[Rfam]
RNA sequence: CAUAACUGCCUUUUAGGCAUCCUCUCCCAAACUUAUAUAGCCCGGUCGUUUCGACCGGGCUUUUUUCUUUCCCGCC
Numbered sequence: 001c002a003u004a005a006c007u008g009c010c011u012u013u014u015a016g017g018c019a020u021c022c023u024c025u026c027c028c029a030a031a032c033u034u035a036u037a038u039a040g041c042c043c044g045g046u047c048g049u050u051u052c053g054a055c056c057g058g059g060c061u062u063u064u065u066u067c068u069u070u071c072c073c074g075c076c
Stems, first nucleotide, its partner, number of pairs: 008018004039061009
Dot-bracket structure: .......((((...))))....................(((((((((.....)))))))))...............

A member of the RNA family "Makes More Granules Regulator RNA (mmgR)" from Parapontixanthobacter aurantiacus, 76 nucleotides long.
Its family is annotated with response to nitrogen compound, protein binding and DNA-templated transcription, termination in the Gene Ontology.
The family's RNA type in Rfam is small RNA.
Rfam describes the family as follows. SuhB later renamed mmgR (makes more granules regulator) was a putative non-coding RNA found multiple times in the Agrobacterium tumefaciens genome and related alpha-proteobacteria.